[Rfam]
RNA sequence: CUCCCUGGUGUCCUCAUUGUUCAUGCUGUGUGCAUCUGUCACACACAGCGCGUGCAAUGUGGACAUCGUGGAG
Numbered sequence: 001c002u003c004c005c006u007g008g009u010g011u012c013c014u015c016a017u018u019g020u021u022c023a024u025g026c027u028g029u030g031u032g033c034a035u036c037u038g039u040c041a042c043a044c045a046c047a048g049c050g051c052g053u054g055c056a057a058u059g060u061g062g063a064c065a066u067c068g069u070g071g072a073g
Stems, first nucleotide, its partner, number of pairs: 012062002015059006024050001026048006
Shown here is a 73-nucleotide RNA from Cisticola juncidis, a member of the family "mir-460 microRNA precursor family". The literature on the family includes a 2006 paper in FEBS Lett by Xu et al., "Identification of microRNAs from different tissues of chicken embryo and adult chicken". Its family is annotated with RISC complex and miRNA-mediated post-transcriptional gene silencing in the Gene Ontology. The source organism's lineage runs through Eukaryota, Archelosauria, Australaves, Sylvioidea and Cisticola. A search with the family's covariance model found it, with a score of 63 bits.